Rfam assigns this 110-nucleotide RNA from Limnohabitans sp. Rim28 to the family "TPP riboswitch aptamer (THI element)".
A search with the family's covariance model found it, with a score of 62 bits.
RNA sequence: ACCCGUCGCCAGGGGGGCUCUGAAAAGAGCUGAGAUUGCGUCUGUCUCGACGCUGACCCUGGAACCUGAUCCGGCUCAUACCGGCGGAGGAAGCGCGACAUGCUGUACGC
Numbered sequence: 001a002c003c004c005g006u007c008g009c010c011a012g013g014g015g016g017g018c019u020c021u022g023a024a025a026a027g028a029g030c031u032g033a034g035a036u037u038g039c040g041u042c043u044g045u046c047u048c049g050a051c052g053c054u055g056a057c058c059c060u061g062g063a064a065c066c067u068g069a070u071c072c073g074g075c076u077c078a079u080a081c082c083g084g085c086g087g088a089g090g091a092a093g094c095g096c097g098a099c100a101u102g103c104u105g106u107a108c109g110c
Stems, first nucleotide, its partner, number of pairs: 006098004011060004016054001017030005038053004065090003071084004
Gene Ontology term of the family: thiamine pyrophosphate binding. The family's consensus secondary structure is taken from published work.